[Rfam]
RNA sequence: UUAAUUAGUAUAGCCUGUACUAGUGAUUACAGUAUUUCUUUACAGGCUAUGCUAAUCGAUGC
Number, nucleotide and partner (000 for none) at each position: 001u000002u000003a000004a056005u055006u054007a053008g052009u051010a050011u049012a048013g047014c046015c045016u044017g043018u042019a000020c000021u000022a000023g000024u034025g033026a000027u031028u000029a000030c000031a027032g000033u025034a024035u000036u000037u000038c000039u000040u000041u000042a018043c017044a016045g015046g014047c013048u012049a011050u010051g009052c008053u007054a006055a005056u004057c000058g000059a000060u000061g000062c000
The record is a 62-nucleotide RNA sequence from Clupea harengus, which matches "mir-2187 microRNA precursor family" in Rfam. NCBI's taxonomy places the organism under Eukaryota, Craniata, Neopterygii, Otomorpha, Clupea.